[Rfam]
Rfam assigns this 169-nucleotide RNA sequence from Ruminococcus difficilis to the family "Group II catalytic intron D1-D4-3". Rfam 15.1 lists 4,274 matches to the family in 1,585 species. Rfam links the family to the GO term Group II intron splicing.
RNA sequence: UGAAUCGUGAGGUUCAGGCGAGAAGAAGGGAUAGCGAAAUCGUAGCCUGACGAAAAGAAACCUGAUACGAAGGCGCAUUGAGCGGGUAAGGUGGCAAAUGACAUCGAAGCCCAAAAGGUAACCGUAAGCUUAAUGUGUAAAUCAGGCAGGUAGACGAGGAAAGAGUAUU
Number, nucleotide and partner (000 for none) at each position: 001u016002g015003a014004a013005u012006c011007g000008u000009g000010a000011g006012g005013u004014u003015c002016a001017g000018g000019c000020g000021a000022g000023a000024a000025g000026a000027a000028g000029g000030g169031a168032u167033a000034g000035c163036g000037a000038a000039a000040u157041c156042g155043u154044a000045g151046c150047c149048u148049g147050a000051c000052g000053a000054a000055a000056a000057g000058a000059a000060a000061c146062c145063u144064g143065a142066u141067a000068c000069g000070a000071a000072g000073g138074c137075g136076c000077a134078u133079u132080g131081a130082g129083c128084g112085g111086g110087u109088a000089a000090g105091g104092u103093g102094g000095c000096a000097a000098a000099u000100g000101a000102c093103a092104u091105c090106g000107a000108a000109g087110c086111c085112c084113a000114a000115a000116a000117g000118g000119u000120a000121a000122c000123c000124g000125u000126a000127a000128g083129c082130u081131u080132a079133a078134u077135g000136u075137g074138u073139a000140a000141a066142u065143c064144a063145g062146g061147c049148a048149g047150g046151u045152a000153g000154a043155c042156g041157a040158g000159g000160a000161a000162a000163g035164a000165g000166u000167a032168u031169u030